[Rfam]
RNA sequence: GCGCCCUUAGCUCAGCUGGAUAGAGCACCGGACUUCUAAUCCGAUGGUCGGGGGUUCGAAUCCCUCAGGGCGCG
Dot-bracket structure: (((((((..((((.........))))..((((.......))))......(((((.......)))))))))))).
RNA: tRNA
Organism: Thermopolyspora flexuosa